Annotation
Actinobacteria sRNA Ms_IGR-7: a 119-nucleotide sequence from Mycolicibacterium thermoresistibile. It is one of the family's seed sequences. By type it is a small RNA. The family has 14 seed sequences and 463 matches in Rfam 15.1.

[Rfam]
RNA sequence: CGGAAGUGCCUUUUCGGAGCCGGGUCCGAUUAAUGCGUGAGAACAUCAAUCAUCCCAGCUCAGAGGGCACUUUCCUCAUUCCGACACUCGAUGAACAGCUAAUUCAUCCGUGGAUUCAG
Numbered sequence: 001c002g003g004a005a006g007u008g009c010c011u012u013u014u015c016g017g018a019g020c021c022g023g024g025u026c027c028g029a030u031u032a033a034u035g036c037g038u039g040a041g042a043a044c045a046u047c048a049a050u051c052a053u054c055c056c057a058g059c060u061c062a063g064a065g066g067g068c069a070c071u072u073u074c075c076u077c078a079u080u081c082c083g084a085c086a087c088u089c090g091a092u093g094a095a096c097a098g099c100u101a102a103u104u105c106a107u108c109c110g111u112g113g114a115u116u117c118a119g
Stems, first nucleotide, its partner, number of pairs: 002074012017061002020058001023056002028051003034045002101116006